[Rfam]
RNA sequence: GUCCACGUUGCGGCGGACCAGAGCCAGAAUCCUGCGAGGAUGAUGGCGGCGGCCGGCCAAAGCCUCGUCGUCAUGACGGUGAGGCCGGUCGC
Number, nucleotide and partner (000 for none) at each position: 001g018002u017003c016004c015005a000006c000007g000008u000009u000010g000011c000012g000013g000014c000015g004016g003017a002018c001019c000020a000021g000022a000023g047024c046025c045026a044027g000028a000029a000030u000031c039032c038033u000034g000035c000036g000037a000038g032039g031040a000041u000042g000043a000044u026045g025046g024047c023048g000049g092050c091051g090052g089053c088054c087055g086056g085057c084058c083059a000060a000061a000062g000063c000064c081065u000066c079067g000068u000069c000070g000071u000072c000073a000074u000075g000076a000077c000078g000079g066080u000081g064082a000083g058084g057085c056086c055087g054088g053089u052090c051091g050092c049
The record is a 92-nucleotide sequence from Agrobacterium tumefaciens, which matches "Rhizobiales sRNA Atu_Ti1" in Rfam.
The literature on the family includes a 2012 paper in RNA Biol by Wilms et al., "Deep sequencing uncovers numerous small RNAs on all four replicons of the plant pathogen Agrobacterium tumefaciens".
The family's RNA type in Rfam is small RNA.
Taxonomically the source falls in Agrobacterium tumefaciens (Bacteria, Pseudomonadati, Alphaproteobacteria, Rhizobiaceae).
It is one of the family's seed sequences.
The family's consensus secondary structure was predicted with WAR.